RNA sequence: CCCGGGGCUGCGCGGUGCUUGCCCCGGGCUGUCUCAUUCCGCACCGUUGGUGCU
Dot-bracket structure: ((((((((............))))))))............(((((...))))).

A member of the RNA family "Acido-Lenti-1 RNA" from Luteolibacter yonseiensis, 54 nucleotides long. Rfam classes the family as a small RNA. The family has 87 seed sequences and 2,607 matches in Rfam 15.1. Pairs were carried over by alignment from the consensus structure, which is taken from published work.